[Rfam]
RNA sequence: UCCGCUGUGAGGCGGAAUCUGAAGGAAGCUGGAGGCAAACACUCGACCUGAGGUACACGAACCCAAUUUGAGGCUGUCACAAUCGGAUGAGUCUGCCAAACAAGACGAAGUCCAAAGCCGCCAAGGGUUGUGGCAGUAUAUUGGGCAGGUACAUGAGUGGAAAGUCCGUGCU
Numbered sequence: 001u002c003c004g005c006u007g008u009g010a011g012g013c014g015g016a017a018u019c020u021g022a023a024g025g026a027a028g029c030u031g032g033a034g035g036c037a038a039a040c041a042c043u044c045g046a047c048c049u050g051a052g053g054u055a056c057a058c059g060a061a062c063c064c065a066a067u068u069u070g071a072g073g074c075u076g077u078c079a080c081a082a083u084c085g086g087a088u089g090a091g092u093c094u095g096c097c098a099a100a101c102a103a104g105a106c107g108a109a110g111u112c113c114a115a116a117g118c119c120g121c122c123a124a125g126g127g128u129u130g131u132g133g134c135a136g137u138a139u140a141u142u143g144g145g146c147a148g149g150u151a152c153a154u155g156a157g158u159g160g161a162a163a164g165u166c167c168g169u170g171c172u
Stems, first nucleotide, its partner, number of pairs: 001016006028172001030170002035165002040159006046150005062145006073137003077133007085113004091106004

The record is a 172-nucleotide RNA from Caldalkalibacillus thermarum, which matches "Group II catalytic intron D1-D4-3" in Rfam.